The record is a 99-nucleotide sequence from Brevibacillus borstelensis, which matches "Guanidine-I riboswitch aptamer" in Rfam.

[Rfam]
RNA sequence: AGCAUUGUUUUCUAGGGUUCCGCAGCGAAUCGCUGGUCUGGUCCGAGAGAAAACACACAGCGCUUCGCUGUGACACGGAGGGACAAAAGCCCGGGAGUA
Numbered sequence: 001a002g003c004a005u006u007g008u009u010u011u012c013u014a015g016g017g018u019u020c021c022g023c024a025g026c027g028a029a030u031c032g033c034u035g036g037u038c039u040g041g042u043c044c045g046a047g048a049g050a051a052a053a054c055a056c057a058c059a060g061c062g063c064u065u066c067g068c069u070g071u072g073a074c075a076c077g078g079a080g081g082g083a084c085a086a087a088a089g090c091c092c093g094g095g096a097g098u099a
Stems, first nucleotide, its partner, number of pairs: 007054006015044002020041002022038001023035005056072007074094001076097001080092003

The base pairs follow the family's consensus structure.
It scores 89 bits against the family's covariance model.